Rfam assigns this 195-nucleotide sequence from Oryza sativa to the family "MIR812 microRNA precursor family".
RNA sequence: UUUAAGUGCAGCCAUGGUUUUACGCGCUCAACUUUAAUCGUCCGUCUUAUUUAAAAAAAAUUAAAAACAUAAGUCAUGAGUAAAGUAUACUAUUCAUAUUUUAUUAUCUCAUAACAAUAAAAAUACUAAUUAUAAAAAAAUUUAAAUAAGACGGAUGAUUAAAGUUGGACAUGGAAACUCAUAGUUGUACUUAAA
Dot-bracket structure: ...........................(((((((((((((((((((((((((...........................................................................................)))))))))))))))))))))))))...........................
Numbered sequence: 001u002u003u004a005a006g007u008g009c010a011g012c013c014a015u016g017g018u019u020u021u022a023c024g025c026g027c028u029c030a031a032c033u034u035u036a037a038u039c040g041u042c043c044g045u046c047u048u049a050u051u052u053a054a055a056a057a058a059a060a061u062u063a064a065a066a067a068c069a070u071a072a073g074u075c076a077u078g079a080g081u082a083a084a085g086u087a088u089a090c091u092a093u094u095c096a097u098a099u100u101u102u103a104u105u106a107u108c109u110c111a112u113a114a115c116a117a118u119a120a121a122a123a124u125a126c127u128a129a130u131u132a133u134a135a136a137a138a139a140a141u142u143u144a145a146a147u148a149a150g151a152c153g154g155a156u157g158a159u160u161a162a163a164g165u166u167g168g169a170c171a172u173g174g175a176a177a178c179u180c181a182u183a184g185u186u187g188u189a190c191u192u193a194a195a
Stems, first nucleotide, its partner, number of pairs: 028168025
The organism belongs to Oryza, within Eukaryota.